[Rfam]
RNA sequence: GAAAUUCUUCGGGGCAGGGUGCAAUACCCGACCGGCGGUUAUAGUCCGCGAACCUUUGGGUUGACUUGGUGAAAUUCCAAGACCGACAGUAUAGUCUGGAUGAGAGAAGAAGUUA
Dot-bracket structure: ..(.((((((......(((.......))).[[((((((.....[[))))..(((....)))...(((((.......)))))]])).(((....]]))).......)))))).)..
Numbered sequence: 001g002a003a004a005u006u007c008u009u010c011g012g013g014g015c016a017g018g019g020u021g022c023a024a025u026a027c028c029c030g031a032c033c034g035g036c037g038g039u040u041a042u043a044g045u046c047c048g049c050g051a052a053c054c055u056u057u058g059g060g061u062u063g064a065c066u067u068g069g070u071g072a073a074a075u076u077c078c079a080a081g082a083c084c085g086a087c088a089g090u091a092u093a094g095u096c097u098g099g100a101u102g103a104g105a106g107a108a109g110a111a112g113u114u115a
Stems, first nucleotide, its partner, number of pairs: 003113001005111006017029003031095002033085002035049004044083002052061003065081005087098003